[Rfam]
Shown here is a 76-nucleotide sequence, a member of the family "Plastid-ycf2 5UTR RNA". About the family: Plastid ycf2 is a non-coding RNA (ncRNA) recognised in plastids. It was found in the prime untranslated region (5UTR) of ycf2 genes, it presents a tRNA-like motif which suggests it can be involved in mRNA maturation, particularly involved in defining the precise 5' end of the transcript. On this family, see Richter et al., Plant Commun 2023: "Retrograde signaling in plants: A critical review focusing on the GUN pathway and beyond". The family has 204 seed sequences and 3,521 matches in Rfam 15.1.
RNA sequence: CGUGCAUCCAACAGGAUUUGAACCUGCACAUAUACCAAUUAUGAGUUGGGCGCUUUAACCAUUCAGCCAUGGAUGC
Numbered sequence: 001c002g003u004g005c006a007u008c009c010a011a012c013a014g015g016a017u018u019u020g021a022a023c024c025u026g027c028a029c030a031u032a033u034a035c036c037a038a039u040u041a042u043g044a045g046u047u048g049g050g051c052g053c054u055u056u057a058a059c060c061a062u063u064c065a066g067c068c069a070u071g072g073a074u075g076c
Stems, first nucleotide, its partner, number of pairs: 004076006012026004041070003045067006052060001